[Rfam]
RNA sequence: AGUCGUACUGGUCGAUUGGGAAACUCAUCAAUUACAUACGAAUUCCGAGACAAGCUUCUCUAUUCUAAUGGCGGGUCACAUCCUUCGGGAUUGCUUAGGCGCAGUGAAUUACAAAGGGAUGGAGGCACUCAAAUCCUGUUUAACGGAGUUUCGUCUUUAUCCAUCGGUACGGCUCUCUCA
Numbered sequence: 001a002g003u004c005g006u007a008c009u010g011g012u013c014g015a016u017u018g019g020g021a022a023a024c025u026c027a028u029c030a031a032u033u034a035c036a037u038a039c040g041a042a043u044u045c046c047g048a049g050a051c052a053a054g055c056u057u058c059u060c061u062a063u064u065c066u067a068a069u070g071g072c073g074g075g076u077c078a079c080a081u082c083c084u085u086c087g088g089g090a091u092u093g094c095u096u097a098g099g100c101g102c103a104g105u106g107a108a109u110u111a112c113a114a115a116g117g118g119a120u121g122g123a124g125g126c127a128c129u130c131a132a133a134u135c136c137u138g139u140u141u142a143a144c145g146g147a148g149u150u151u152c153g154u155c156u157u158u159a160u161c162c163a164u165c166g167g168u169a170c171g172g173c174u175c176u177c178u179c180a
Base pairs, nucleotide, nucleotide: 054126055125056124059123060122061121062120063119064118065117066116069113070112076107077106078105079104081090082089083088092101093100094099
Dot-bracket structure: .....................................................(((..((((((((..((.....((((.(((....))).(((....)))..))))....))..)))))))))))......................................................
Overview: Bacteroidales-1 6S-Bacteroidales RNA suggested: a 180-nucleotide RNA sequence from Dysgonomonas sp. HDW5A. The match comes from Rfam's covariance-model search (141 bits). Bacteroidales-1 was first reported in a comparative genomics-based approach of genome and metagenome sequences from Weinberg et al. 2010 In a high-resolution transcriptome map study of Bacteroides thetaiotaomicron, Ryan et al. 2020 report this sRNA as 6S RNA homologue of Bacteroides, in the study they obtain evidence of small product RNAs (pRNAs) related to 6S function.